mir-339 microRNA precursor family: a 92-nucleotide RNA from Equus caballus.
RNA sequence: CGUGGCAGCCGCUUUCCCUGUCCUCCAGGAGCUCACUUACAUCCGGCCGUGAGCUCCCCGAGGCCAGAGCCCGUGUCUGCCUCAUUGUCAGC
Numbered sequence: 001c002g003u004g005g006c007a008g009c010c011g012c013u014u015u016c017c018c019u020g021u022c023c024u025c026c027a028g029g030a031g032c033u034c035a036c037u038u039a040c041a042u043c044c045g046g047c048c049g050u051g052a053g054c055u056c057c058c059c060g061a062g063g064c065c066a067g068a069g070c071c072c073g074u075g076u077c078u079g080c081c082u083c084a085u086u087g088u089c090a091g092c
Stems, first nucleotide, its partner, number of pairs: 005080004010075003016069001018067003022063001024061002028057002031054006037046002
Gene Ontology terms of the family: miRNA-mediated post-transcriptional gene silencing and RISC complex. For this family Rfam cites "Repertoire of bovine miRNA and miRNA-like small regulatory RNAs expressed upon viral infection" (Glazov et al., PLoS One, 2009). The match comes from Rfam's covariance-model search (87 bits). Pairs were carried over by alignment from the consensus structure, which was predicted with RNAalifold.